[Rfam]
RNA: Small nucleolar RNA Z266
Organism: Digitaria exilis
RNA sequence: CCUUGGCAGGAGUGAUGAAUCAAUUAGAUGUGCGAAGUUAUACCUUGUGAUCUUAACUUUUGAGGCAUAUAAUUUGUCUGACCUGCCAAGU
Dot-bracket structure: .(((((((((.......................................................................))))))))).